The record is a 66-nucleotide RNA from Nannospalax galili, which matches "Small nucleolar RNA SNORD109A" in Rfam. Its family is annotated with RNA processing and nucleolus in the Gene Ontology.
[Rfam]
Nucleotides: 066
Base pairs, nucleotide, nucleotide: 001066002065003064005063
Number, partner (000 for none) and nucleotide at each position: 001066g002065g003064a004000u005063c006000g007000a008000u009000g010000a011000u012000g013000a014000g015000a016000a017000c018000a019000a020000c021000u022000a023000c024000c025000u026000g027000a028000g029000g030000a031000c032000g033000c034000u035000g036000a037000g038000g039000g040000u041000c042000u043000c044000a045000u046000a047000a048000c049000a050000a051000a052000u053000g054000g055000c056000a057000a058000u059000c060000u061000g062000a063005g064003u065002c066001c
From the family's description: Humans have two copies of the SNORD109 gene, SNORD109A and SNORD109B. The base pairs follow the family's consensus structure, which was predicted with WAR. A search with the family's covariance model found it, with a score of 68 bits. For this family Rfam cites "The IC-SNURF-SNRPN transcript serves as a host for multiple small nucleolar RNA species and as an antisense RNA for UBE3A" (Runte et al., Hum Mol Genet, 2001).